[Rfam]
RNA sequence: GCGCGUUCUCAGGGCGGGGUGAAAUUCCCCACCGGCGGUAACGGCGCACGCGCCGAAGCCCGCGAGCGCCACCUUCGUCACUGGAGGUGGGUCAGCAGAUUUGGUGCAACUCCAGAGCCGACGGUCAUAGUCCGGAUGGAAGAGAGCGACA
Numbered sequence: 001g002c003g004c005g006u007u008c009u010c011a012g013g014g015c016g017g018g019g020u021g022a023a024a025u026u027c028c029c030c031a032c033c034g035g036c037g038g039u040a041a042c043g044g045c046g047c048a049c050g051c052g053c054c055g056a057a058g059c060c061c062g063c064g065a066g067c068g069c070c071a072c073c074u075u076c077g078u079c080a081c082u083g084g085a086g087g088u089g090g091g092u093c094a095g096c097a098g099a100u101u102u103g104g105u106g107c108a109a110c111u112c113c114a115g116a117g118c119c120g121a122c123g124g125u126c127a128u129a130g131u132c133c134g135g136a137u138g139g140a141a142g143a144g145a146g147c148g149a150c151a
Stems, first nucleotide, its partner, number of pairs: 004148007017029003031131002033120002035063004058118002066096002100116005122134003
RNA: FMN riboswitch aptamer (RFN element)
Organism: Thalassovita mediterranea